A member of the RNA family "Acido-Lenti-1 RNA" from Roseibacillus ishigakijimensis, 45 nucleotides long. The family's consensus secondary structure is taken from published work. It is annotated as a small RNA.
RNA sequence: CCCAGGGCGGUGCCCUGGGCUGAUAUAGGUCGCCCCCUUGGGGCU
Number, nucleotide and partner (000 for none) at each position: 001c019002c018003c017004a016005g015006g014007g013008c012009g000010g000011u000012g008013c007014c006015c005016u004017g003018g002019g001020c000021u000022g000023a000024u000025a000026u000027a000028g000029g000030u000031c000032g044033c043034c042035c041036c040037c000038u000039u000040g036041g035042g034043g033044c032045u000